The family of this 98-nucleotide RNA from Cellulosimicrobium arenosum is "mraW RNA".
RNA sequence: AGCUGCCCGUCCGGUGAGGUCUCCUCCCGCCCGUUCUGACGCACUUCCCCGGCGCCAGAAGGACGCGGAGGGAGACCUGACCGGAUGGCCACGCCACC
Numbered sequence: 001a002g003c004u005g006c007c008c009g010u011c012c013g014g015u016g017a018g019g020u021c022u023c024c025u026c027c028c029g030c031c032c033g034u035u036c037u038g039a040c041g042c043a044c045u046u047c048c049c050c051g052g053c054g055c056c057a058g059a060a061g062g063a064c065g066c067g068g069a070g071g072g073a074g075a076c077c078u079g080a081c082c083g084g085a086u087g088g089c090c091a092c093g094c095c096a097c098c
Stems, first nucleotide, its partner, number of pairs: 010085006018077002021074005027068004032062001034060005040054003
The family's RNA type in Rfam is cis-regulatory element.
The source organism's lineage runs through Bacteria, Bacillati, Micrococcales, Promicromonosporaceae and Cellulosimicrobium.